[Rfam]
RNA: mir-9229 microRNA precursor family
RNA sequence: GAGACACCUGUAUGGAGCAGGACUUGCUGCAAUGGGGCUUUGGUGCUCACUGAGCCUGCCCCCUGAGUGUGUCACU
Numbered sequence: 001g002a003g004a005c006a007c008c009u010g011u012a013u014g015g016a017g018c019a020g021g022a023c024u025u026g027c028u029g030c031a032a033u034g035g036g037g038c039u040u041u042g043g044u045g046c047u048c049a050c051u052g053a054g055c056c057u058g059c060c061c062c063c064u065g066a067g068u069g070u071g072u073c074a075c076u
Base pairs, nucleotide, nucleotide: 001075003073004072005071006070007069009067011065012064014062015061017059018058019057021056023054030052031051033049034048035047036046037044038043